MIR7504 microRNA precursor family: a 123-nucleotide RNA from Gossypium gossypioides.
RNA sequence: AAUGAGAGAAUUACAAAUCAGAUUUUUCCUUUUGAUUUUCCAUUUUUUUUCUCUUGAAAAAAUUCAAAUCUAAUUAAAAAUGCUGAAAAUCAGGAGGAAAAAUCUGAUAUGUUUUCUCCCCUU
Numbered sequence: 001a002a003u004g005a006g007a008g009a010a011u012u013a014c015a016a017a018u019c020a021g022a023u024u025u026u027u028c029c030u031u032u033u034g035a036u037u038u039u040c041c042a043u044u045u046u047u048u049u050u051c052u053c054u055u056g057a058a059a060a061a062a063u064u065c066a067a068a069u070c071u072a073a074u075u076a077a078a079a080a081u082g083c084u085g086a087a088a089a090u091c092a093g094g095a096g097g098a099a100a101a102a103u104c105u106g107a108u109a110u111g112u113u114u115u116c117u118c119c120c121c122u123u
Stems, first nucleotide, its partner, number of pairs: 001123002004120001006118005013112003017108011029096011042084001046080004